Shown here is an 80-nucleotide RNA from Desulforapulum autotrophicum, a member of the family "c-di-GMP-I riboswitch aptamer". Taxonomically the source falls in Desulforapulum autotrophicum (Bacteria, Thermodesulfobacteriota, Desulfobacterales, Desulfobacteraceae). Its family is annotated with cyclic-di-GMP binding in the Gene Ontology. The base pairs follow the family's consensus structure, which is taken from published work.
RNA sequence: UUCCGACAAAGGUAACCCGUGGGUAACCACGGUUCACAAAGCUUAUGGGUCCGUCAUUGGCGGAUAGCCGAGUUGCCGAA
Numbered sequence: 001u002u003c004c005g006a007c008a009a010a011g012g013u014a015a016c017c018c019g020u021g022g023g024u025a026a027c028c029a030c031g032g033u034u035c036a037c038a039a040a041g042c043u044u045a046u047g048g049g050u051c052c053g054u055c056a057u058u059g060g061c062g063g064a065u066a067g068c069c070g071a072g073u074u075g076c077c078g079a080a
Base pairs, nucleotide, nucleotide: 012037013036017032018031019030020029021028022027040074041073042072043071046070047069048068049065050064051063052062053061054060055059